The family of this 591-nucleotide part of an RNA from Adhaeretor mobilis is "Bacterial large subunit ribosomal RNA". Lineage of the source: Bacteria > Pseudomonadati > Planctomycetota > Pirellulales > Adhaeretor.

[Rfam]
RNA sequence: CCCGCAGCUAGACGGAAAGACCCCGUGAACCUUUACUGUAGGCUGAUAUUGGGCUGUGCUAUGUACUGUGUAGGAUAGGUGGGAGGCUUUGAACUCCGGUCGCCAGAUCGGAGGGAGCCAUUGGUGAAAUACCACCCUGUUCAUGGUUUAGUUCUAACUUUGAUUCCCGUGAAACCGGGCAAAGGACAGUGUCAGUUGGGCAGUUUGACUGGGGCGGUCUCCUCCUAAAGAGUAACGGAGGAGUCCAAUAGGCGCACUCAGCCUGGUUGGCAAUCAGGCAUCGAGCAUAAAGGUAGAAGUGCGCUAGACUGCAAGACUUAUCAGUCGAGCAGGUGUGAAAGCAGGGCUUAGUGAUCCGGUGGUUCCGUAUGGAAGGGCCAUCGCUCAACAGAUAAAAGGUACUCCGGGGAUAACAGGCUUAUCGCUCCCGAGCGUCCAUAGCGGCGGAGCGGUUUGGCACCUCGAUGUCGGCUCAUCACAUCCUGGGGGUGGAGAAGCUCCCAAGGGUUUGGCUGUUCGCCAAUGAAAGUGGUACGUGAGCUGGGUUCAGACCGUCGUGAGACAGGUCGGUCCCUAUCUACUGUGGGCGCA
Numbered sequence: 001c002c003c004g005c006a007g008c009u010a011g012a013c014g015g016a017a018a019g020a021c022c023c024c025g026u027g028a029a030c031c032u033u034u035a036c037u038g039u040a041g042g043c044u045g046a047u048a049u050u051g052g053g054c055u056g057u058g059c060u061a062u063g064u065a066c067u068g069u070g071u072a073g074g075a076u077a078g079g080u081g082g083g084a085g086g087c088u089u090u091g092a093a094c095u096c097c098g099g100u101c102g103c104c105a106g107a108u109c110g111g112a113g114g115g116a117g118c119c120a121u122u123g124g125u126g127a128a129a130u131a132c133c134a135c136c137c138u139g140u141u142c143a144u145g146g147u148u149u150a151g152u153u154c155u156a157a158c159u160u161u162g163a164u165u166c167c168c169g170u171g172a173a174a175c176c177g178g179g180c181a182a183a184g185g186a187c188a189g190u191g192u193c194a195g196u197u198g199g200g201c202a203g204u205u206u207g208a209c210u211g212g213g214g215c216g217g218u219c220u221c222c223u224c225c226u227a228a229a230g231a232g233u234a235a236c237g238g239a240g241g242a243g244u245c246c247a248a249u250a251g252g253c254g255c256a257c258u259c260a261g262c263c264u265g266g267u268u269g270g271c272a273a274u275c276a277g278g279c280a281u282c283g284a285g286c287a288u289a290a291a292g293g294u295a296g297a298a299g300u301g302c303g304c305u306a307g308a309c310u311g312c313a314a315g316a317c318u319u320a321u322c323a324g325u326c327g328a329g330c331a332g333g334u335g336u337g338a339a340a341g342c343a344g345g346g347c348u349u350a351g352u353g354a355u356c357c358g359g360u361g362g363u364u365c366c367g368u369a370u371g372g373a374a375g376g377g378c379c380a381u382c383g384c385u386c387a388a389c390a391g392a393u394a395a396a397a398g399g400u401a402c403u404c405c406g407g408g409g410a411u412a413a414c415a416g417g418c419u420u421a422u423c424g425c426u427c428c429c430g431a432g433c434g435u436c437c438a439u440a441g442c443g444g445c446g447g448a449g450c451g452g453u454u455u456g457g458c459a460c461c462u463c464g465a466u467g468u469c470g471g472c473u474c475a476u477c478a479c480a481u482c483c484u485g486g487g488g489g490u491g492g493a494g495a496a497g498c499u500c501c502c503a504a505g506g507g508u509u510u511g512g513c514u515g516u517u518c519g520c521c522a523a524u525g526a527a528a529g530u531g532g533u534a535c536g537u538g539a540g541c542u543g544g545g546u547u548c549a550g551a552c553c554g555u556c557g558u559g560a561g562a563c564a565g566g567u568c569g570g571u572c573c574c575u576a577u578c579u580a581c582u583g584u585g586g587g588c589g590c591a
Base pairs, nucleotide, nucleotide: 001587002586003585004584005583006582007581010579011578012577014574015573022408023407024406025405027404028403029400030399031398032397033396035204036203037202038201042196043195044194045193046192047191048190051154052153053152054151055150056149058147059146060145061144062143063142065140066139068137078136079135080134081133082132085119086118087117094113095112096111097110098109099108100107101106158184159183160182164181166179167178168177169176207219208218209217210216220242221241222240223239224238225237243389245346246345252304253303254302255301256300257299258284259283261279262278263277264276265275266274285294286293309332310331311330312329315326316325317324334343335342336341357383358382359381360380361379362378363377365376366375417458418457419456421455422452423451424450425449426448427447428446432442433441469544470542471541472540473539474536475533476532477531478530479529482507483506485502486501487500488499489498490497509523510522511521512520513519550568551567552566553565554563555562556561
The family's consensus secondary structure is taken from published work.